[Rfam]
RNA sequence: AUACUUACCUGGACGGGGUCGAUGGGCGAUCAAGAAGGCCCGUGGCCUAGGUCCGUGGCCUCCAUUGCACUUGGGAGGAGCACUGGCUUACCAUCUCCCCAAGUGGGAGAGUGGACGUCGUAAUUUGUGGUAGAGGGGGAACGCGCGCGCCGCGGCCCCUG
Numbered sequence: 001a002u003a004c005u006u007a008c009c010u011g012g013a014c015g016g017g018g019u020c021g022a023u024g025g026g027c028g029a030u031c032a033a034g035a036a037g038g039c040c041c042g043u044g045g046c047c048u049a050g051g052u053c054c055g056u057g058g059c060c061u062c063c064a065u066u067g068c069a070c071u072u073g074g075g076a077g078g079a080g081c082a083c084u085g086g087c088u089u090a091c092c093a094u095c096u097c098c099c100c101a102a103g104u105g106g107g108a109g110a111g112u113g114g115a116c117g118u119c120g121u122a123a124u125u126u127g128u129g130g131u132a133g134a135g136g137g138g139g140a141a142c143g144c145g146c147g148c149g150c151c152g153c154g155g156c157c158c159c160u161g
Stems, first nucleotide, its partner, number of pairs: 012119004016048006023042005049089005060078002062075002091114003094110003098106002135160005142154004
RNA: U1 spliceosomal RNA